The record is a 115-nucleotide RNA sequence from Musa balbisiana, which matches "Plastid-psbA-1 3UTR RNA" in Rfam.
Clan: Plastid-psbA 3UTR RNA clan.
A search with the family's covariance model found it, with a score of 57 bits.
It is annotated as a cis-regulatory element.
From the family's description: Plastid psbA-1 is a non-coding RNA (ncRNA) present in plastids. It was identified in inverted repeat sequences in the 3 prime untranslate region (3UTR) of photosystem II quinone-binding protein (psbA).
The family's consensus secondary structure was predicted with LocARNA.
[Rfam]
RNA sequence: UUUAUGUUAUCUUUUUAGUUUAUAUGUAUGCUGUGCGCAAAAAAACAAUAUUGUAUCAAACAAAGUAGCAAUACCCCAUAUCUUGCUUUAGCAAGAUAUGGGGUAUUGCUACUUU
Number, nucleotide and partner (000 for none) at each position: 001u000002u000003u000004a000005u000006g000007u000008u000009a000010u000011c000012u000013u000014u000015u000016u000017a000018g000019u000020u000021u000022a000023u000024a000025u000026g000027u000028a000029u000030g000031c000032u000033g000034u000035g000036c000037g000038c000039a000040a000041a000042a000043a000044a000045a000046c000047a000048a000049u000050a000051u000052u000053g000054u000055a000056u000057c000058a000059a000060a000061c000062a115063a114064a113065g112066u111067a110068g109069c108070a107071a106072u105073a104074c103075c000076c101077c100078a099079u000080a097081u096082c095083u094084u093085g000086c000087u000088u000089u000090a000091g000092c000093a084094a083095g082096a081097u080098a000099u078100g077101g076102g000103g074104u073105a072106u071107u070108g069109c068110u067111a066112c065113u064114u063115u062